[Rfam]
RNA sequence: GGUUGCAAGCUCAAGGCAUUAUCAGAGGCACUAAUGGUGCUGCCCUGUCAGAUUCCAAUGAAUCUGUGAAUUCUGCU
Numbered sequence: 001g002g003u004u005g006c007a008a009g010c011u012c013a014a015g016g017c018a019u020u021a022u023c024a025g026a027g028g029c030a031c032u033a034a035u036g037g038u039g040c041u042g043c044c045c046u047g048u049c050a051g052a053u054u055c056c057a058a059u060g061a062a063u064c065u066g067u068g069a070a071u072u073c074u075g076c077u
Stems, first nucleotide, its partner, number of pairs: 015044004021077001023075005028040003049066007
Background:
Shown here is a 77-nucleotide RNA from Crocodylus porosus, a member of the family "Mammalian CPEB3 ribozyme". On this family, see Salehi-Ashtiani et al., Science 2006: "A genomewide search for ribozymes reveals an HDV-like sequence in the human CPEB3 gene". It scores 45 bits against the family's covariance model. NCBI's taxonomy places the organism under Eukaryota, Opisthokonta, Dipnotetrapodomorpha, Archelosauria, Crocodylus.